[Rfam]
RNA sequence: AAAAAGGGCCUCUAUGUGAGUGGUGCACCCAGAGCAGCCUGAUUGCUCUAUGUGCGGAAUCCACAUCAAGAAAUUUUGGAAGCAUAAUUUUUUUGGUACUUGGGCAGCUGGUGAUGGUUGGUCCUGGAGCCCCC
Numbered sequence: 001a002a003a004a005a006g007g008g009c010c011u012c013u014a015u016g017u018g019a020g021u022g023g024u025g026c027a028c029c030c031a032g033a034g035c036a037g038c039c040u041g042a043u044u045g046c047u048c049u050a051u052g053u054g055c056g057g058a059a060u061c062c063a064c065a066u067c068a069a070g071a072a073a074u075u076u077u078g079g080a081a082g083c084a085u086a087a088u089u090u091u092u093u094u095g096g097u098a099c100u101u102g103g104g105c106a107g108c109u110g111g112u113g114a115u116g117g118u119u120g121g122u123c124c125u126g127g128a129g130c131c132c133c134c
Base pairs, nucleotide, nucleotide: 008083009082011080012079013025014024015023016021026054027053028052031049032048033047034046035045036044037043055078056077057076058075059074060073102132103131104130105129108127109126110125111124113123114122115121

U11 spliceosomal RNA: a 134-nucleotide RNA sequence from Pipistrellus kuhlii.
Its Rfam clan is "U1 clan".
The family's consensus secondary structure is taken from published work.
By type it is a spliceosomal small nuclear RNA.
A search with the family's covariance model found it, with a score of 76 bits.